RNA sequence: GUAGCCCUUGCAGGCUCGCGAAAUUGUUCUGGUUGGCAUUGAUUGAAUAAUUUGUCACCGGGGCUUUUUCGACUAGCUUUCCGCGUGGU
Numbered sequence: 001g002u003a004g005c006c007c008u009u010g011c012a013g014g015c016u017c018g019c020g021a022a023a024u025u026g027u028u029c030u031g032g033u034u035g036g037c038a039u040u041g042a043u044u045g046a047a048u049a050a051u052u053u054g055u056c057a058c059c060g061g062g063g064c065u066u067u068u069u070c071g072a073c074u075a076g077c078u079u080u081c082c083g084c085g086u087g088g089u
Stems, first nucleotide, its partner, number of pairs: 004086002007083001012079005018073001019071005026064008035056004
RNA: mir-5316 microRNA precursor family
Organism: Rhipicephalus microplus